[Rfam]
RNA sequence: AUUUUAAUUUCAUCAUAAUUACCUUAAUUUAAUUAUCAAAAAGGAGUUAUGAUAUAGU
Numbered sequence: 001a002u003u004u005u006a007a008u009u010u011c012a013u014c015a016u017a018a019u020u021a022c023c024u025u026a027a028u029u030u031a032a033u034u035a036u037c038a039a040a041a042a043g044g045a046g047u048u049a050u051g052a053u054a055u056a057g058u
Stems, first nucleotide, its partner, number of pairs: 012053008
The family of this 58-nucleotide sequence from Parvimonas micra is "dfrA-dnaX RNA". Taxonomically the source falls in Parvimonas (Bacteria, Bacillati, Tissierellales, Peptoniphilaceae).